[Rfam]
Rfam assigns this 85-nucleotide sequence from Gorilla gorilla to the family "mir-571 microRNA precursor family". The organism belongs to Gorilla gorilla, within Eukaryota.
RNA sequence: AAAAAGACCAAGUCUGAUGCACUACUCCCUGGUCUGUAGUCAUGUCUACGGGUUCUUGAGUUUGCUACCUGGGUGAAGGACUGCU
Numbered sequence: 001a002a003a004a005a006g007a008c009c010a011a012g013u014c015u016g017a018u019g020c021a022c023u024a025c026u027c028c029c030u031g032g033u034c035u036g037u038a039g040u041c042a043u044g045u046c047u048a049c050g051g052g053u054u055c056u057u058g059a060g061u062u063u064g065c066u067a068c069c070u071g072g073g074u075g076a077a078g079g080a081c082u083g084c085u
Base pairs, nucleotide, nucleotide: 001085004082008078012074013073014072015071016070018067019066022064024062026060028058032053033052034051035050036049037048038047039046